[Rfam]
Description
A member of the RNA family "Plastid-atpF group II-D1 intron" from Beta vulgaris, 53 nucleotides long. A search with the family's covariance model found it, with a score of 54 bits. Rfam's curators write: Plastid atpF is a non-coding RNA (ncRNA) recognised in plastids. It has been reported in the intron group II-D1 region of ATP synthase (atpF) genes. Pairs were carried over by alignment from the consensus structure, which was predicted with LocARNA. Taxonomically the source falls in Beta vulgaris (Eukaryota, Streptophyta, Euphyllophyta, Caryophyllales).
RNA sequence: AAAAUAGUUUUCAAUAUAUAACACUCAUGUCGAUAAAAUAAUUUGAAUCCUAA
Numbered sequence: 001a002a003a004a005u006a007g008u009u010u011u012c013a014a015u016a017u018a019u020a021a022c023a024c025u026c027a028u029g030u031c032g033a034u035a036a037a038a039u040a041a042u043u044u045g046a047a048u049c050c051u052a053a
Stems, first nucleotide, its partner, number of pairs: 011033002014030004